[Rfam]
RNA sequence: GGGUGUUAGCUGCAUACCGCAGCGGGACAGGCUUUUCGCGCUGGUCGGGCCGCCACG
Numbered sequence: 001g002g003g004u005g006u007u008a009g010c011u012g013c014a015u016a017c018c019g020c021a022g023c024g025g026g027a028c029a030g031g032c033u034u035u036u037c038g039c040g041c042u043g044g045u046c047g048g049g050c051c052g053c054c055a056c057g
Stems, first nucleotide, its partner, number of pairs: 005028003009023003039057002042055004